[Rfam]
RNA sequence: GUGGGCUAUGGGGACAUGUAUCCAGUGACUAUAGGGGGGAAGAUCGUGGGCUCCUUAUGCGCUAUUGCCGGUGUAUUGACAAUUGCACUUCCGGUACCCGUCAUUGUCUCCAAU
Numbered sequence: 001g002u003g004g005g006c007u008a009u010g011g012g013g014a015c016a017u018g019u020a021u022c023c024a025g026u027g028a029c030u031a032u033a034g035g036g037g038g039g040a041a042g043a044u045c046g047u048g049g050g051c052u053c054c055u056u057a058u059g060c061g062c063u064a065u066u067g068c069c070g071g072u073g074u075a076u077u078g079a080c081a082a083u084u085g086c087a088c089u090u091c092c093g094g095u096a097c098c099c100g101u102c103a104u105u106g107u108c109u110c111c112a113a114u
Stems, first nucleotide, its partner, number of pairs: 001114002004111002008107004013102003018097004037077002040074001049063003
RNA: Potassium channel RNA editing signal
Organism: Albula goreensis